[Rfam]
RNA sequence: AGCCUAUGAUGAUGAAAAAGUAUUAAGAGUAGUGGACAGGAGUGAUUUCUGAGAAUUUUUACACUGAGGCU
Numbered sequence: 001a002g003c004c005u006a007u008g009a010u011g012a013u014g015a016a017a018a019a020g021u022a023u024u025a026a027g028a029g030u031a032g033u034g035g036a037c038a039g040g041a042g043u044g045a046u047u048u049c050u051g052a053g054a055a056u057u058u059u060u061a062c063a064c065u066g067a068g069g070c071u
Stems, first nucleotide, its partner, number of pairs: 001071004